[Rfam]
RNA sequence: GAGUACAGUGAGUGGCCAGAUUAUUAUGAAUUCAGAAAUCAUAAUAAUCUGGCCACUCAUUGUAUGU
Numbered sequence: 001g002a003g004u005a006c007a008g009u010g011a012g013u014g015g016c017c018a019g020a021u022u023a024u025u026a027u028g029a030a031u032u033c034a035g036a037a038a039u040c041a042u043a044a045u046a047a048u049c050u051g052g053c054c055a056c057u058c059a060u061u062g063u064a065u066g067u
Base pairs, nucleotide, nucleotide: 004064005063006062007061008060009059010058011057012056013055014054015053016052017051019049020048021047022046023045024044025043026042027041028040
RNA: mir-9256 microRNA precursor family
Organism: Pipistrellus kuhlii